[Rfam]
RNA sequence: GGGCGCGACACGGGGUGCCCCGCACCGAGGGCUGAGAUCAGACCCGUCGAACCUGCUCGAGCUCGUACUCGCGAAGGGAUGUCGCCAUGAGCGCUG
Numbered sequence: 001g002g003g004c005g006c007g008a009c010a011c012g013g014g015g016u017g018c019c020c021c022g023c024a025c026c027g028a029g030g031g032c033u034g035a036g037a038u039c040a041g042a043c044c045c046g047u048c049g050a051a052c053c054u055g056c057u058c059g060a061g062c063u064c065g066u067a068c069u070c071g072c073g074a075a076g077g078g079a080u081g082u083c084g085c086c087a088u089g090a091g092c093g094c095u096g
Base pairs, nucleotide, nucleotide: 006084007083008082009081010080011046012045013044014043016040017032018031019030020029052077053076054075058071059070060069061068